Record summary:
A member of the RNA family "Molybdenum/Tungsten riboswitch aptamer (Moco RNA motif)" from Desulfosporosinus youngiae, 130 nucleotides long. The literature on the family includes a 2008 paper in Mol Microbiol by Regulski et al., "in molybdenum cofactor and tungsten cofactor metabolism". The match comes from Rfam's covariance-model search (70 bits). The source organism's lineage runs through Bacteria, Eubacteriales, Desulfitobacteriaceae, Desulfosporosinus and Desulfosporosinus youngiae. Rfam links the family to the GO terms regulation of gene expression, molybdenum ion binding and tungstate binding.

RNA sequence: AAUCAAUCAUAUCUCCGAGCCUGAUCAACCUAACGAGAAAUCUAUGGUUGCCGGCCAGGGCUUUAAGCCCUCAGGGCGUAACCGGAAACGGGUAUGCCUUCACAUUUGAAAAGGAGGUGGCAGGCCUGGU
Number, nucleotide and partner (000 for none) at each position: 001a000002a000003u124004c123005a000006a000007u000008c000009a000010u000011a118012u117013c116014u115015c114016c113017g000018a000019g055020c054021c053022u000023g051024a000025u000026c000027a000028a048029c047030c046031u000032a000033a000034c000035g042036a041037g000038a000039a000040a000041u036042c035043u000044a000045u000046g030047g029048u028049u000050g000051c023052c000053g021054g020055c019056c000057a071058g070059g069060g068061c067062u000063u000064u000065a000066a000067g061068c060069c059070c058071u057072c000073a000074g099075g098076g097077c096078g095079u094080a093081a000082c091083c090084g089085g000086a000087a000088a000089c084090g083091g082092g000093u080094a079095u078096g077097c076098c075099u074100u109101c108102a000103c000104a000105u000106u000107u000108g101109a100110a000111a000112a000113g016114g015115a014116g013117g012118u011119g000120g000121c000122a000123g004124g003125c000126c000127u000128g000129g000130u000